The record is a 179-nucleotide RNA sequence from Neobacillus mesonae, which matches "Lysine riboswitch aptamer" in Rfam. The base pairs follow the family's consensus structure, which is taken from published work.
RNA sequence: AGUGAAGGUAGAGGUGCGAGCUUCAAUAGUAAAGGUUCGGAGAAGGAUGGGCUUCGAUGAAGAACCUUGAAAGGGUAUGUUCGCCGAAGCGGGGAAAGACUCAUUGCUUUCUUUGCUGGUCCUGUGUUGAAUAAAUACAGGAUUGUCAAGACGAAUUGUCUUGGAGAGCUAUCUUUCAU
Numbered sequence: 001a002g003u004g005a006a007g008g009u010a011g012a013g014g015u016g017c018g019a020g021c022u023u024c025a026a027u028a029g030u031a032a033a034g035g036u037u038c039g040g041a042g043a044a045g046g047a048u049g050g051g052c053u054u055c056g057a058u059g060a061a062g063a064a065c066c067u068u069g070a071a072a073g074g075g076u077a078u079g080u081u082c083g084c085c086g087a088a089g090c091g092g093g094g095a096a097a098g099a100c101u102c103a104u105u106g107c108u109u110u111c112u113u114u115g116c117u118g119g120u121c122c123u124g125u126g127u128u129g130a131a132u133a134a135a136u137a138c139a140g141g142a143u144u145g146u147c148a149a150g151a152c153g154a155a156u157u158g159u160c161u162u163g164g165a166g167a168g169c170u171a172u173c174u175u176u177c178a179u
Stems, first nucleotide, its partner, number of pairs: 006174006016084006022077001024075001032068007088117011118144011146164007

A search with the family's covariance model found it, with a score of 138 bits.